[Rfam]
RNA: Glutamine-II riboswitch aptamer
RNA sequence: AGACGUUCACCCUGCUUUUUAAGCAGGGCGCAGUUCGACUCAGGCCAUGGAACGGGGACCUGGG
Numbered sequence: 001a002g003a004c005g006u007u008c009a010c011c012c013u014g015c016u017u018u019u020u021a022a023g024c025a026g027g028g029c030g031c032a033g034u035u036c037g038a039c040u041c042a043g044g045c046c047a048u049g050g051a052a053c054g055g056g057g058a059c060c061u062g063g064g
Stems, first nucleotide, its partner, number of pairs: 004054005010028007039064006045057002